RNA sequence: CAACGAUGUCAGUGAUGACACCGUGAAUUGUAAGAAGUCAGCAGAAGUCAUAGUAGUCGAGAGACGAAGGAC
Numbered sequence: 001c002a003a004c005g006a007u008g009u010c011a012g013u014g015a016u017g018a019c020a021c022c023g024u025g026a027a028u029u030g031u032a033a034g035a036a037g038u039c040a041g042c043a044g045a046a047g048u049c050a051u052a053g054u055a056g057u058c059g060a061g062a063g064a065c066g067a068a069g070g071a072c
Stems, first nucleotide, its partner, number of pairs: 001025002004023002007020005038045002047072003056065003
Notes:
Rfam assigns this 72-nucleotide RNA sequence from Evansella cellulosilytica to the family "Group II catalytic intron D1-D4-1". Group II introns are found in rRNA, tRNA and mRNA of organelles in fungi, plants and protists, and also in mRNA in bacteria. The source organism's lineage runs through Bacteria, Bacillati, Bacillaceae, Evansella and Evansella cellulosilytica.